[Rfam]
RNA sequence: UGGGCAGUAUCCAAUGGAACUGCACCUAGGUAAAUGGUUAGGAUUAAACAAAAUAAUAAGUUCUGCCUAGAUCCAUUAACGGACCGGGACAGAGGG
Numbered sequence: 001u002g003g004g005c006a007g008u009a010u011c012c013a014a015u016g017g018a019a020c021u022g023c024a025c026c027u028a029g030g031u032a033a034a035u036g037g038u039u040a041g042g043a044u045u046a047a048a049c050a051a052a053a054u055a056a057u058a059a060g061u062u063c064u065g066c067c068u069a070g071a072u073c074c075a076u077u078a079a080c081g082g083a084c085c086g087g088g089a090c091a092g093a094g095g096g
Base pairs, nucleotide, nucleotide: 002026003025004023005022006021007020008019010018011017063092064091065090066088067087068086070084072083073082074081
A member of the RNA family "pan motif" from Pseudoneobacillus rhizosphaerae, 96 nucleotides long. By type it is a cis-regulatory element.